Shown here is an 85-nucleotide RNA sequence from Alicyclobacillus sp. SO9, a member of the family "c-di-GMP-I riboswitch aptamer". The match comes from Rfam's covariance-model search (81 bits).
[Rfam]
RNA sequence: UCGUGAUAAUGGCAAACCAGUGGAAACACUGGGACGCAAAGCUACGGGUCUACGGACGCAUGUCUAUGAUCGCCGGGUUGCCACU
Numbered sequence: 001u002c003g004u005g006a007u008a009a010u011g012g013c014a015a016a017c018c019a020g021u022g023g024a025a026a027c028a029c030u031g032g033g034a035c036g037c038a039a040a041g042c043u044a045c046g047g048g049u050c051u052a053c054g055g056a057c058g059c060a061u062g063u064c065u066a067u068g069a070u071c072g073c074c075g076g077g078u079u080g081c082c083a084c085u
Base pairs, nucleotide, nucleotide: 012037013036017032018031019030020029021028022027040079041078042077043076045075046074047073048070049069050068055064056063057062